[Rfam]
RNA sequence: CAGGCUGUGAUGAUUGGCGCAGGGGUAUGGACCUCAGCUGAUUCAUGGGAACUGAGUGUAUGUGUUUCUCCUUUGUCCUGCAUGUGGCAGGCUGAUGGGGAGUCAUGAGUGGGGGUGCUUG
Numbered sequence: 001c002a003g004g005c006u007g008u009g010a011u012g013a014u015u016g017g018c019g020c021a022g023g024g025g026u027a028u029g030g031a032c033c034u035c036a037g038c039u040g041a042u043u044c045a046u047g048g049g050a051a052c053u054g055a056g057u058g059u060a061u062g063u064g065u066u067u068c069u070c071c072u073u074u075g076u077c078c079u080g081c082a083u084g085u086g087g088c089a090g091g092c093u094g095a096u097g098g099g100g101a102g103u104c105a106u107g108a109g110u111g112g113g114g115g116u117g118c119u120u121g
Stems, first nucleotide, its partner, number of pairs: 001121005